[Rfam]
RNA sequence: UAAAUAUUUGUCGUAAUACGUCGUAUAAUUUUGGGAAUAUGGCCCAAGAGUUUCUACCAAGCUGCCGUAAAUAGCUGGACUACGAGGUAAGUGUUAUGCACA
Number, nucleotide and partner (000 for none) at each position: 001u000002a000003a000004a000005u000006a000007u000008u000009u000010g000011u000012c000013g000014u000015a000016a000017u000018a088019c087020g000021u085022c084023g083024u082025a081026u000027a000028a000029u049030u048031u047032u046033g045034g044035g043036a000037a000038u000039a000040u000041g000042g000043c035044c034045c033046a032047a031048g030049a029050g000051u000052u000053u000054c000055u000056a000057c000058c078059a000060a076061g075062c074063u073064g072065c000066c000067g000068u000069a000070a000071a000072u064073a063074g062075c061076u060077g000078g058079a000080c000081u025082a024083c023084g022085a021086g000087g019088u018089a000090a000091g000092u000093g000094u000095u000096a000097u000098g000099c000100a000101c000102a000
Rfam assigns this 102-nucleotide RNA sequence from Bacillus mesophilum to the family "Purine riboswitch aptamer".
A search with the family's covariance model found it, with a score of 88 bits.